[Rfam]
The record is a 99-nucleotide RNA sequence from Variovorax sp. PBL-E5, which matches "Glycine riboswitch aptamer" in Rfam. NCBI's taxonomy places the organism under Bacteria, Pseudomonadati, Pseudomonadota, Betaproteobacteria, Variovorax. It scores 44 bits against the family's covariance model.
RNA sequence: UCACCAGGGUCAGGAGAGAGCCCCGCCCCGCGGAGCCGCCGAAGGCGCAGGUCCCACCGAUCCACGGGCCCGAACGCUCAGGCAAAAGGACUGACGAAG
Numbered sequence: 001u002c003a004c005c006a007g008g009g010u011c012a013g014g015a016g017a018g019a020g021c022c023c024c025g026c027c028c029c030g031c032g033g034a035g036c037c038g039c040c041g042a043a044g045g046c047g048c049a050g051g052u053c054c055c056a057c058c059g060a061u062c063c064a065c066g067g068g069c070c071c072g073a074a075c076g077c078u079c080a081g082g083c084a085a086a087a088g089g090a091c092u093g094a095c096g097a098a099g
Stems, first nucleotide, its partner, number of pairs: 009095005020036002023033001038083003041079002045077003050071002
Dot-bracket structure: ........(((((......((.(.........).)).(((((..(((..((..................))...))))).))).......)))))....